[Rfam]
RNA sequence: CGAGCCGACCUGGUCGACUUGUUAGUUCGUCAAUGUCCGAUCGAACCGUAGGCGAUGCCGCCUGCGGCCACGACUACGGGAGAGACCGCUGAGCGUCACCAC
Numbered sequence: 001c002g003a004g005c006c007g008a009c010c011u012g013g014u015c016g017a018c019u020u021g022u023u024a025g026u027u028c029g030u031c032a033a034u035g036u037c038c039g040a041u042c043g044a045a046c047c048g049u050a051g052g053c054g055a056u057g058c059c060g061c062c063u064g065c066g067g068c069c070a071c072g073a074c075u076a077c078g079g080g081a082g083a084g085a086c087c088g089c090u091g092a093g094c095g096u097c098a099c100c101a102c
Stems, first nucleotide, its partner, number of pairs: 001021004006016004046067009
Description:
Shown here is a 102-nucleotide RNA sequence from Rhodococcus sp. RD6.2, a member of the family "atpB RNA". The match comes from Rfam's covariance-model search (46 bits). Taxonomically the source falls in Rhodococcus (Bacteria, Bacillati, Actinomycetes, Nocardiaceae). The family's consensus secondary structure is taken from published work.